[Rfam]
RNA sequence: UACCCCCUUUUCAUCUUGCCAGUCAGACUUAAGUCUCUAUUGUUCAUUCAAAUGGGGCAAAGGAAAUAGCCUUUUAAAACUCAAGCAAACUAGAUGUUUUGUCUUAUACCCUGUCAGAGGAAACAAAA
Numbered sequence: 001u002a003c004c005c006c007c008u009u010u011u012c013a014u015c016u017u018g019c020c021a022g023u024c025a026g027a028c029u030u031a032a033g034u035c036u037c038u039a040u041u042g043u044u045c046a047u048u049c050a051a052a053u054g055g056g057g058c059a060a061a062g063g064a065a066a067u068a069g070c071c072u073u074u075u076a077a078a079a080c081u082c083a084a085g086c087a088a089a090c091u092a093g094a095u096g097u098u099u100u101g102u103c104u105u106a107u108a109c110c111c112u113g114u115c116a117g118a119g120g121a122a123a124c125a126a127a128a
Stems, first nucleotide, its partner, number of pairs: 033058004040051003070120005083104001085102004089097002